[Rfam]
RNA: S15-Flavobacteria ribosomal protein leader
RNA sequence: UACCUUUGCACACGAAAUAGGACUACCCUAAUUCACUACAUAAUAAUCAUUUAAAUAAUAUUAGCAUG
Numbered sequence: 001u002a003c004c005u006u007u008g009c010a011c012a013c014g015a016a017a018u019a020g021g022a023c024u025a026c027c028c029u030a031a032u033u034c035a036c037u038a039c040a041u042a043a044u045a046a047u048c049a050u051u052u053a054a055a056u057a058a059u060a061u062u063a064g065c066a067u068g
Stems, first nucleotide, its partner, number of pairs: 014034003018030002